[Rfam]
RNA: Small nucleolar RNA SNORA79
RNA sequence: UGACAACCGUUCCUCCUACUGUUUUGAGACCUGGCAGCUGGGAUUUUAGGUUGUCACAGAUCAUAGUGGGUCUUUUUCACCCAGAGCUCAUGAGGCAGUGGGUCUGCCCCUGUGUGCACUGGAAUUUGCGGGACCCCACACCA
Numbered sequence: 001u002g003a004c005a006a007c008c009g010u011u012c013c014u015c016c017u018a019c020u021g022u023u024u025u026g027a028g029a030c031c032u033g034g035c036a037g038c039u040g041g042g043a044u045u046u047u048a049g050g051u052u053g054u055c056a057c058a059g060a061u062c063a064u065a066g067u068g069g070g071u072c073u074u075u076u077u078c079a080c081c082c083a084g085a086g087c088u089c090a091u092g093a094g095g096c097a098g099u100g101g102g103u104c105u106g107c108c109c110c111u112g113u114g115u116g117c118a119c120u121g122g123a124a125u126u127u128g129c130g131g132g133a134c135c136c137c138a139c140a141c142c143a
Base pairs, nucleotide, nucleotide: 001056002055003054004053005052006051007050008049014043015042016041017040018039020036021035022034023033069135070134071133072132073131074130081122082121083120084119086117087116089114090113094108095107096106097105